[Rfam]
RNA: L31-Gammaproteobacteria ribosomal protein leader
Organism: Actinobacillus ureae
RNA sequence: CAUAUGGUACUUAUCAGCGGAUAUACGUAUGUAUAACAAGAUAAGUGGCGAUAUGGCUUCAUUAGAGGU
Numbered sequence: 001c002a003u004a005u006g007g008u009a010c011u012u013a014u015c016a017g018c019g020g021a022u023a024u025a026c027g028u029a030u031g032u033a034u035a036a037c038a039a040g041a042u043a044a045g046u047g048g049c050g051a052u053a054u055g056g057c058u059u060c061a062u063u064a065g066a067g068g069u
Base pairs, nucleotide, nucleotide: 001055002054003053004052005051007049008048011044012043013042014041015040
Dot-bracket structure: (((((.((..(((((........................)))))...)).)))))..............